[Rfam]
RNA sequence: UUCCGAUGCUAAGUAGUGGUGCCGCAGGUAAACUUCUUUACGUGUUACCUGAUGCCUUCUGCUUAAUAUCGAAA
Numbered sequence: 001u002u003c004c005g006a007u008g009c010u011a012a013g014u015a016g017u018g019g020u021g022c023c024g025c026a027g028g029u030a031a032a033c034u035u036c037u038u039u040a041c042g043u044g045u046u047a048c049c050u051g052a053u054g055c056c057u058u059c060u061g062c063u064u065a066a067u068a069u070c071g072a073a074a
Stems, first nucleotide, its partner, number of pairs: 001074002004071004010065007018057002025051006
Dot-bracket structure: ((.((((..(((((((.((.....((((((...............))))))....)).)))))))..)))).))
RNA: mir-252 microRNA precursor family